RNA sequence: AAAGAAAGGAGCAAUAGUCGACUUCUUGUUUUAUCAAGGGGACGUUAUUGCUCCUUU
Numbered sequence: 001a002a003a004g005a006a007a008g009g010a011g012c013a014a015u016a017g018u019c020g021a022c023u024u025c026u027u028g029u030u031u032u033a034u035c036a037a038g039g040g041g042a043c044g045u046u047a048u049u050g051c052u053c054c055u056u057u
Base pairs, nucleotide, nucleotide: 005057006056007055008054009053010052011051012050013049014048015047016046023040024039025038026037027036028035